A member of the RNA family "Molybdenum/Tungsten riboswitch aptamer (Moco RNA motif)", 145 nucleotides long. It scores 94 bits against the family's covariance model.

[Rfam]
RNA sequence: AGAGAAAUCAAACUCCUAGCCCCUGCGCCUACGUUGUUCAUCCGGAACGAUAUGGCGCCUGGGCCGUGGCGAAGUCAGCCACCAGGGUGCAGAGGGGAAACGCUCGCAUCUCCCGACUUUGGAAAGGUGUUAUGGUACCGCAACU
Numbered sequence: 001a002g003a004g005a006a007a008u009c010a011a012a013c014u015c016c017u018a019g020c021c022c023c024u025g026c027g028c029c030u031a032c033g034u035u036g037u038u039c040a041u042c043c044g045g046a047a048c049g050a051u052a053u054g055g056c057g058c059c060u061g062g063g064c065c066g067u068g069g070c071g072a073a074g075u076c077a078g079c080c081a082c083c084a085g086g087g088u089g090c091a092g093a094g095g096g097g098a099a100a101c102g103c104u105c106g107c108a109u110c111u112c113c114c115g116a117c118u119u120u121g122g123a124a125a126g127g128u129g130u131u132a133u134g135g136u137a138c139c140g141c142a143a144c145u
Base pairs, nucleotide, nucleotide: 004138006136011131012130013129015127016126019064020063021062022061025058026057027056028055029054033051034050035049036048037047038046039045066082067081068080069079070078085111086110087109088108089107090106092105093104094103096101112122113121
Dot-bracket structure: ...(.(....(((.((..((((..(((((...(((((((.....)))))))..)))))..)))).(((((.......)))))..((((((.(((.(....).)))))))))((.......))...)).)))....).).......